RNA: Glycine riboswitch aptamer
Organism: Pseudonocardia sp. MH-G8
RNA sequence: CGAACCCGCGCGGGAGAGAACCGGACCCGCCCGGUCGCCGAAGGAGCAACUCCUCCCCGGAACCUCUCAGGCACCCAGGACCGCGCGGGCGAG
Numbered sequence: 001c002g003a004a005c006c007c008g009c010g011c012g013g014g015a016g017a018g019a020a021c022c023g024g025a026c027c028c029g030c031c032c033g034g035u036c037g038c039c040g041a042a043g044g045a046g047c048a049a050c051u052c053c054u055c056c057c058c059g060g061a062a063c064c065u066c067u068c069a070g071g072c073a074c075c076c077a078g079g080a081c082c083g084c085g086c087g088g089g090c091g092a093g
Stems, first nucleotide, its partner, number of pairs: 006088008020035004037072003040068002044066003050060002